[Rfam]
RNA sequence: UUUCCUUUCUCAACCACAGUUCUGCGUCACGAACGAUCCCUCCCUGCUUCUCCAAGAAGCAGUGCGAGGUCCGAACGUCCGUGACGAUCUCGACCCUCUGCGCGGAGCACAUUUUAGCCCCCCCAUAAUGUUUAUCUUCCCGGUCGACAGAACUGAGAGCAACCCCUUCUCGAACCUUUCGCCCUGCACAUGCCGUGCGGGCGCAGUCGCGCUCGAGCUCGGUCCUUGAGACGUCGCCUUUGCUUUGAGGUCGUUCGCGCGAUCUUGGCGGGGCUUCCGAACGGGGUACUUUGAUUAGCUCGGCGGGCUGAUGGUCGGGGAGGGGAGACGUCUUAUUCCCAAGCUUGGUGUACAAGCCCCGUCGGGGCAUGAUCAUUGGGCAAAACCAAGACUGUUGUCUACAGAU
Numbered sequence: 001u002u003u004c005c006u007u008u009c010u011c012a013a014c015c016a017c018a019g020u021u022c023u024g025c026g027u028c029a030c031g032a033a034c035g036a037u038c039c040c041u042c043c044c045u046g047c048u049u050c051u052c053c054a055a056g057a058a059g060c061a062g063u064g065c066g067a068g069g070u071c072c073g074a075a076c077g078u079c080c081g082u083g084a085c086g087a088u089c090u091c092g093a094c095c096c097u098c099u100g101c102g103c104g105g106a107g108c109a110c111a112u113u114u115u116a117g118c119c120c121c122c123c124c125a126u127a128a129u130g131u132u133u134a135u136c137u138u139c140c141c142g143g144u145c146g147a148c149a150g151a152a153c154u155g156a157g158a159g160c161a162a163c164c165c166c167u168u169c170u171c172g173a174a175c176c177u178u179u180c181g182c183c184c185u186g187c188a189c190a191u192g193c194c195g196u197g198c199g200g201g202c203g204c205a206g207u208c209g210c211g212c213u214c215g216a217g218c219u220c221g222g223u224c225c226u227u228g229a230g231a232c233g234u235c236g237c238c239u240u241u242g243c244u245u246u247g248a249g250g251u252c253g254u255u256c257g258c259g260c261g262a263u264c265u266u267g268g269c270g271g272g273g274c275u276u277c278c279g280a281a282c283g284g285g286g287u288a289c290u291u292u293g294a295u296u297a298g299c300u301c302g303g304c305g306g307g308c309u310g311a312u313g314g315u316c317g318g319g320g321a322g323g324g325g326a327g328a329c330g331u332c333u334u335a336u337u338c339c340c341a342a343g344c345u346u347g348g349u350g351u352a353c354a355a356g357c358c359c360c361g362u363c364g365g366g367g368c369a370u371g372a373u374c375a376u377u378g379g380g381c382a383a384a385a386c387c388a389a390g391a392c393u394g395u396u397g398u399c400u401a402c403a404g405a406u
Stems, first nucleotide, its partner, number of pairs: 018154007026085006035076001037074002039069004043064001045061006091146005099134002102131003165323002168320006181308004186304001327399003330392005343381005349375002357367004
Record summary: A member of the RNA family "A. fumigatus sRNA Afu_309" from Cladophialophora yegresii, 406 nucleotides long. Taxonomically the source falls in Cladophialophora yegresii (Eukaryota, Fungi, Pezizomycotina, leotiomyceta). The family's consensus secondary structure was predicted with WAR. A search with the family's covariance model found it, with a score of 52 bits.